[Rfam]
RNA sequence: AUGCCUUAAACUUGUGAGUAAGGAAAAUAACAAUUCAGGGUGACACCCAGAUCCUCACUGCUACUAUGAGACAAAGUUUUGAGCGAGUAAAGAUUGCCUCUAAGGUGGCCCGCCUACUUUGAGGGAUGCCUGGGAGUAGCAAUCUGCCUG
Numbered sequence: 001a002u003g004c005c006u007u008a009a010a011c012u013u014g015u016g017a018g019u020a021a022g023g024a025a026a027a028u029a030a031c032a033a034u035u036c037a038g039g040g041u042g043a044c045a046c047c048c049a050g051a052u053c054c055u056c057a058c059u060g061c062u063a064c065u066a067u068g069a070g071a072c073a074a075a076g077u078u079u080u081g082a083g084c085g086a087g088u089a090a091a092g093a094u095u096g097c098c099u100c101u102a103a104g105g106u107g108g109c110c111c112g113c114c115u116a117c118u119u120u121g122a123g124g125g126a127u128g129c130c131u132g133g134g135a136g137u138a139g140c141a142a143u144c145u146g147c148c149u150g
Base pairs, nucleotide, nucleotide: 004023005022006021007020008019033052034051035050038047039046054070055069056068057067084150085149087147088146091145092144093143094142095141096140097139100134101133103131104130105129106128107127109125110124111123113121

Rfam assigns this 150-nucleotide RNA from Carlito syrichta to the family "U12 minor spliceosomal RNA". The source organism's lineage runs through Eukaryota, Eumetazoa, Vertebrata, Dipnotetrapodomorpha and Carlito. By type it is a spliceosomal small nuclear RNA. On this family, see Tarn and Steitz, Trends Biochem Sci 1997: "Pre-mRNA splicing: the discovery of a new spliceosome doubles the challenge".